Small nucleolar RNA SNORA12: a 139-nucleotide RNA sequence from Chloroceryle aenea.
Gene Ontology terms of the family: RNA processing and nucleolus.
A search with the family's covariance model found it, with a score of 79 bits.
The base pairs follow the family's consensus structure, which was predicted with RNAalifold.
For this family Rfam cites "A novel experimental approach for systematic identification of box H/ACA snoRNAs from eukaryotes" (Gu et al., Nucleic Acids Res, 2005).
U108 belongs to the H/ACA family of snoRNAs. The sequence is predicted to guide the pseudouridylation of the U372 residue in the 28S rRNA subunit. However it has not been reported as a pseudouridylation site.
[Rfam]
RNA sequence: UAUUGUGGUGGUUUCUCUAUUUGGCAGAUCUGUAACUGCAUCAGAGCGGCCUUAAACUACCACAGAGAUCAGAAAGGAGAAGGCUGUGCUGAGAACUUCAAGCUUUUAGUUAUCAGCUUUUUGUUCAUCUCCUACAGGA
Dot-bracket structure: ....(((((((...........(((.(.((((.........)))).).))).....)))))))............(((((..................((((.................))))....))))).......